[Rfam]
RNA sequence: GAACUGGUCAACUAAUCUGCUUACCUCAAUGUGUUUCUCCAGAAAUUUAGAAAAAGCUGGCAAUAGUGAUGCCACGUUAUGAGGCUUAAAGACAACUGAGGUCACUAAGGUCUCUGAAAAUGGCCACAAUA
Number, nucleotide and partner (000 for none) at each position: 001g000002a000003a000004c060005u059006g058007g057008u000009c000010a000011a000012c000013u000014a000015a000016u043017c042018u041019g040020c000021u000022u000023a000024c000025c000026u000027c000028a000029a000030u000031g000032u000033g000034u000035u000036u000037c000038u000039c000040c019041a018042g017043a016044a000045a000046u000047u000048u000049a000050g000051a000052a000053a000054a000055a000056g000057c007058u006059g005060g004061c000062a000063a000064u000065a000066g000067u000068g000069a000070u000071g124072c123073c122074a121075c000076g000077u000078u000079a000080u000081g000082a000083g111084g000085c109086u108087u107088a106089a000090a000091g103092a102093c101094a000095a000096c000097u000098g000099a000100g000101g093102u092103c091104a000105c000106u088107a087108a086109g085110g000111u083112c000113u000114c000115u000116g000117a000118a000119a000120a000121u074122g073123g072124c071125c000126a000127c000128a000129a000130u000131a000

Rfam assigns this 131-nucleotide RNA from Jaculus jaculus to the family "Small nucleolar RNA SNORA33". Gene Ontology terms of the family: RNA processing and nucleolus. Rfam classes the family as an H/ACA-box small nucleolar RNA. Taxonomically the source falls in Jaculus (Eukaryota, Metazoa, Chordata, Glires). A search with the family's covariance model found it, with a score of 106 bits. Rfam describes the family as follows. ACA33 is a member of the H/ACA class of snoRNA that guide the sites of modification of uridines to pseudouridines.